[Rfam]
Nucleotides: 046
Base pairs, nucleotide, nucleotide: 003046004045005044007041008040009039010038015035016034018032019031020030021029022028
Number, partner (000 for none) and nucleotide at each position: 001000c002000c003046g004045g005044u006000u007041c008040c009039g010038g011000u012000u013000c014000a015035c016034g017000u018032c019031c020030u021029c022028g023000a024000c025000a026000g027000u028022c029021g030020a031019g032018g033000u034016c035015g036000a037000c038010c039009c040008g041007g042000c043000g044005a045004c046003c
A member of the RNA family "L31-Actinobacteria ribosomal protein leader" from Rhodococcoides trifolii, 46 nucleotides long. The family is grouped with related families in Rfam's "Ribosomal Protein L31 Leader clan". Taxonomically the source falls in Rhodococcoides (Bacteria, Bacillati, Actinomycetota, Nocardiaceae).